[Rfam]
Annotation:
This 95-nucleotide RNA belongs to the Rfam family "Guanidine-I riboswitch aptamer".

RNA sequence: UGUAAAGUUUUCUAGGGUUCCGUAGCUGAUGCUAGUCUGGUCCGAGAGAAAACCACAAUUUUUUUGUGACACGGAGGGAUAAAAGCCUGGGAGAU
Numbered sequence: 001u002g003u004a005a006a007g008u009u010u011u012c013u014a015g016g017g018u019u020c021c022g023u024a025g026c027u028g029a030u031g032c033u034a035g036u037c038u039g040g041u042c043c044g045a046g047a048g049a050a051a052a053c054c055a056c057a058a059u060u061u062u063u064u065u066g067u068g069a070c071a072c073g074g075a076g077g078g079a080u081a082a083a084a085g086c087c088u089g090g091g092a093g094a095u
Stems, first nucleotide, its partner, number of pairs: 007053006015043002020040002022037001023034004054068005070090001072093001076088003

Pairs were carried over by alignment from the consensus structure.